[Rfam]
RNA sequence: ACCUGUUGCGGACAGCAUCGAGUGCUGUCCGCAGCGCAAGAAACACACCGUGUCAUGGGAACAACGUGACACUUCUGGGCGUU
Numbered sequence: 001a002c003c004u005g006u007u008g009c010g011g012a013c014a015g016c017a018u019c020g021a022g023u024g025c026u027g028u029c030c031g032c033a034g035c036g037c038a039a040g041a042a043a044c045a046c047a048c049c050g051u052g053u054c055a056u057g058g059g060a061a062c063a064a065c066g067u068g069a070c071a072c073u074u075c076u077g078g079g080c081g082u083u
Stems, first nucleotide, its partner, number of pairs: 004036013050072008